Background
Shown here is a 133-nucleotide RNA sequence from Pluralibacter gergoviae, a member of the family "Molybdenum/Tungsten riboswitch aptamer (Moco RNA motif)". Its family is annotated with tungstate binding, molybdenum ion binding and regulation of gene expression in the Gene Ontology. The organism belongs to Pluralibacter, within Bacteria.
[Rfam]
RNA sequence: AAACGGAAGCUACACUCUAGCCCUGGCGCCUGUGUCUGCGGAUAUGGCGCCCCGGCCGUGACGAAAGUCACCAGGGUACAGGAAGAAAUGACUGUGCCUCCCAUACUUGGAAAGGUGUACAUGGCCACACAAC
Number, nucleotide and partner (000 for none) at each position: 001a000002a000003a000004c000005g000006g000007a000008a000009g000010c000011u119012a118013c117014a116015c115016u000017c114018u000019a000020g056021c055022c054023c000024u000025g051026g050027c049028g048029c047030c046031u000032g000033u000034g043035u042036c041037u000038g000039c000040g000041g036042a035043u034044a000045u000046g030047g029048c028049g027050c026051c025052c000053c000054g022055g021056c020057c000058g071059u070060g069061a068062c067063g000064a000065a000066a000067g062068u061069c060070a059071c058072c000073a000074g099075g098076g097077u096078a095079c094080a093081g092082g000083a000084a089085g000086a000087a000088a000089u084090g000091a000092c081093u080094g079095u078096g077097c076098c075099u074100c110101c109102c000103a000104u000105a000106c000107u000108u000109g101110g100111a000112a000113a000114g017115g015116u014117g013118u012119a011120c000121a000122u000123g000124g000125c000126c000127a000128c000129a000130c000131a000132a000133c000